[Rfam]
Background
Rfam assigns this 100-nucleotide sequence from Prunus avium to the family "MIR6274 microRNA precursor family". Its family is annotated with miRNA-mediated post-transcriptional gene silencing and RISC complex in the Gene Ontology. Taxonomically the source falls in Prunus (Eukaryota, Tracheophyta, Pentapetalae, Rosaceae).
RNA sequence: GGAUAUAAUUGUUUUGCUAUUCCCGACCAAUAACACAAUGACACGUGGAAAAGCUACGUGUCAUUGCGUUAUUGGGCGGGGAUAGCAAAAAGUGUUAUCC
Numbered sequence: 001g002g003a004u005a006u007a008a009u010u011g012u013u014u015u016g017c018u019a020u021u022c023c024c025g026a027c028c029a030a031u032a033a034c035a036c037a038a039u040g041a042c043a044c045g046u047g048g049a050a051a052a053g054c055u056a057c058g059u060g061u062c063a064u065u066g067c068g069u070u071a072u073u074g075g076g077c078g079g080g081g082a083u084a085g086c087a088a089a090a091a092g093u094g095u096u097a098u099c100c
Base pairs, nucleotide, nucleotide: 002099003098004097005096012090013089014088015087016086017085018084019083020082022080023079024078025077027075028074029073030072031071032070033069034068036066037065038064039063040062041061042060043059044058045057046056047055048054